[Rfam]
RNA sequence: AGCCAGAGUAGAAGCGUUCAACUUCGCGCCAUGCGAAGCGGGAAAUUGCUCUUGAG
Numbered sequence: 001a002g003c004c005a006g007a008g009u010a011g012a013a014g015c016g017u018u019c020a021a022c023u024u025c026g027c028g029c030c031a032u033g034c035g036a037a038g039c040g041g042g043a044a045a046u047u048g049c050u051c052u053u054g055a056g
Base pairs, nucleotide, nucleotide: 005052006051007050008049009048010047015041018043019042022038023037024036025035026034027033
RNA: Xanthine riboswitch aptamer (NMT1 RNA)